[Rfam]
RNA: mir-8/mir-141/mir-200 microRNA precursor family
Organism: Ceutorhynchus assimilis
RNA sequence: GAUGACAUCGUACCUGACAGUAUUAGAGGUACUACUUUAUAUCUAAUGCUGCCGGGUAGGAUGUCAAC
Numbered sequence: 001g002a003u004g005a006c007a008u009c010g011u012a013c014c015u016g017a018c019a020g021u022a023u024u025a026g027a028g029g030u031a032c033u034a035c036u037u038u039a040u041a042u043c044u045a046a047u048g049c050u051g052c053c054g055g056g057u058a059g060g061a062u063g064u065c066a067a068c
Stems, first nucleotide, its partner, number of pairs: 003066007011058006018051010